[Rfam]
RNA sequence: AAUGACAUCGGUGAUGGAGCUCGCCUUUAACCGCCAACCGGUUGGCUGAUGGCUCCUGUGAAUGU
Dot-bracket structure: .........[[[[..((((((]]]].......((((......))))....)))))).........